[Rfam]
RNA sequence: AUCUCCUGUUUCUGCCCCAAAUUCAUUUACAUUUCCUUAGAAUUAUGGGUUCUAAUUAUGGAGAAGAUCAAGCCAUGGAAUGGGACACUUGCUAAUUUUGAUACAUCCUGUGAGUGUCUUUUCCGUGGAUCGUGUGGAUGGCUGAUUCCUUUGUGUGGUGGAGUUACGAAUUUCUGUAAUGAAGCCUGGUCAGCCCCACUAUAUUU
Numbered sequence: 001a002u003c004u005c006c007u008g009u010u011u012c013u014g015c016c017c018c019a020a021a022u023u024c025a026u027u028u029a030c031a032u033u034u035c036c037u038u039a040g041a042a043u044u045a046u047g048g049g050u051u052c053u054a055a056u057u058a059u060g061g062a063g064a065a066g067a068u069c070a071a072g073c074c075a076u077g078g079a080a081u082g083g084g085a086c087a088c089u090u091g092c093u094a095a096u097u098u099u100g101a102u103a104c105a106u107c108c109u110g111u112g113a114g115u116g117u118c119u120u121u122u123c124c125g126u127g128g129a130u131c132g133u134g135u136g137g138a139u140g141g142c143u144g145a146u147u148c149c150u151u152u153g154u155g156u157g158g159u160g161g162a163g164u165u166a167c168g169a170a171u172u173u174c175u176g177u178a179a180u181g182a183a184g185c186c187u188g189g190u191c192a193g194c195c196c197c198a199c200u201a202u203a204u205u206u
Stems, first nucleotide, its partner, number of pairs: 003063004016049004020044005073128008082119001084118009134199004140195005153185002156182001159179001165178004
The record is a 206-nucleotide sequence from Spathaspora sp. JA1, which matches "Small nucleolar RNA snR43" in Rfam. For this family Rfam cites "The RNA world of the nucleolus: two major families of small RNAs defined by different box elements with related functions" (Balakin et al., Cell, 1996). Clan: SNORA9 clan. Rfam links the family to the GO terms RNA processing and nucleolus. By type it is an H/ACA-box small nucleolar RNA.